[Rfam]
RNA: Iron response element I
Organism: Megalops atlanticus
RNA sequence: GAAGUUCUUGCGUCAACAGUGAUUGAACGGGACCUC
Numbered sequence: 001g002a003a004g005u006u007c008u009u010g011c012g013u014c015a016a017c018a019g020u021g022a023u024u025g026a027a028c029g030g031g032a033c034c035u036c
Stems, first nucleotide, its partner, number of pairs: 001036002004033005010028001013026004017021001